RNA sequence: UUACAUUCGAUGACGGGAACACGUUAUCUGUACCCUUCGAUCUCCAGAGAGUCGGCGAUUUGCUGAAAGCCGAUGGUUGAAGCUCAGAUCAAUAUCCUCCCCGAGAAGCGACGCCGAAAAUCUAUCGUAGGCGUUGACGUUCGCCCUCGUUACGGGACGUCGUAUACACACUAUACGAUACGCGAGCGCCAAACGUUGCAUCCGGCAGGAUGUGAGUUCGGAACGAGGGUGGUACCACGGAUAACGAUCCGUCCCUUUU
Dot-bracket structure: ......((......((((.......(((((.........(((........((((((............))))))))).......)))))........))))...))..(((((((..............))))))).((........)).......................................((.(((.....................))).))....((((.......(((((......)))))))))...
Numbered sequence: 001u002u003a004c005a006u007u008c009g010a011u012g013a014c015g016g017g018a019a020c021a022c023g024u025u026a027u028c029u030g031u032a033c034c035c036u037u038c039g040a041u042c043u044c045c046a047g048a049g050a051g052u053c054g055g056c057g058a059u060u061u062g063c064u065g066a067a068a069g070c071c072g073a074u075g076g077u078u079g080a081a082g083c084u085c086a087g088a089u090c091a092a093u094a095u096c097c098u099c100c101c102c103g104a105g106a107a108g109c110g111a112c113g114c115c116g117a118a119a120a121u122c123u124a125u126c127g128u129a130g131g132c133g134u135u136g137a138c139g140u141u142c143g144c145c146c147u148c149g150u151u152a153c154g155g156g157a158c159g160u161c162g163u164a165u166a167c168a169c170a171c172u173a174u175a176c177g178a179u180a181c182g183c184g185a186g187c188g189c190c191a192a193a194c195g196u197u198g199c200a201u202c203c204g205g206c207a208g209g210a211u212g213u214g215a216g217u218u219c220g221g222a223a224c225g226a227g228g229g230u231g232g233u234a235c236c237a238c239g240g241a242u243a244a245c246g247a248u249c250c251g252u253c254c255c256u257u258u259u
Stems, first nucleotide, its partner, number of pairs: 007106002015101004026089005040077003051074006109136007138149002189221002192218003226256004237252005
The record is a 259-nucleotide sequence from Cohnella herbarum, which matches "T-box leader" in Rfam.
On this family, see Grundy et al., J Bacteriol 1994: "Interaction between the acceptor end of tRNA and the T box stimulates antitermination in the Bacillus subtilis tyrS gene: a new role for the discriminator base".
The organism belongs to Cohnella, within Bacteria.
It is annotated as a cis-regulatory leader.